[Rfam]
RNA sequence: CCGCUGAUGACCGCACGGACUGAUCACCCGUGGCUCAACGGAAGUCAGCGGACAACUGAAUAACAACGGUUGCCUUUUGAGCGGGUUGCCGCAGACCGAAACGGAGAAUCUCUCUGUCGGGCUGUGGUUAGUUUUCUGCACCCUUUUUGCAGCCGAACC
Numbered sequence: 001c002c003g004c005u006g007a008u009g010a011c012c013g014c015a016c017g018g019a020c021u022g023a024u025c026a027c028c029c030g031u032g033g034c035u036c037a038a039c040g041g042a043a044g045u046c047a048g049c050g051g052a053c054a055a056c057u058g059a060a061u062a063a064c065a066a067c068g069g070u071u072g073c074c075u076u077u078u079g080a081g082c083g084g085g086u087u088g089c090c091g092c093a094g095a096c097c098g099a100a101a102c103g104g105a106g107a108a109u110c111u112c113u114c115u116g117u118c119g120g121g122c123u124g125u126g127g128u129u130a131g132u133u134u135u136c137u138g139c140a141c142c143c144u145u146u147u148u149g150c151a152g153c154c155g156a157a158c159c
Stems, first nucleotide, its partner, number of pairs: 001051005007045002011041003014032005033082006067155007088128005101117005
The family of this 159-nucleotide RNA is "DUF2800 RNA". The family's consensus secondary structure is taken from published work. It is annotated as a cis-regulatory element.